[Rfam]
RNA: Small nucleolar RNA snoR77
Organism: Dioscorea zingiberensis
RNA sequence: AGGCAGCCCCUUUGUCCUCAUAUCCAAUGGCAUCGGCGGUGUUGUUUUGCUCCAAAAGCAAGCCUUGCUUUUGCUCUUCAGACUCGCUGAGAGGAAGGAUCUAAUCUUUUCUUUCUGAUGCUGGUCUAGUAGUCCUAAGUACAUC
Numbered sequence: 001a002g003g004c005a006g007c008c009c010c011u012u013u014g015u016c017c018u019c020a021u022a023u024c025c026a027a028u029g030g031c032a033u034c035g036g037c038g039g040u041g042u043u044g045u046u047u048u049g050c051u052c053c054a055a056a057a058g059c060a061a062g063c064c065u066u067g068c069u070u071u072u073g074c075u076c077u078u079c080a081g082a083c084u085c086g087c088u089g090a091g092a093g094g095a096a097g098g099a100u101c102u103a104a105u106c107u108u109u110u111c112u113u114u115c116u117g118a119u120g121c122u123g124g125u126c127u128a129g130u131a132g133u134c135c136u137a138a139g140u141a142c143a144u145c
Stems, first nucleotide, its partner, number of pairs: 002043004007039002009036002013032004068139003073134001075132001080127005086121002091113008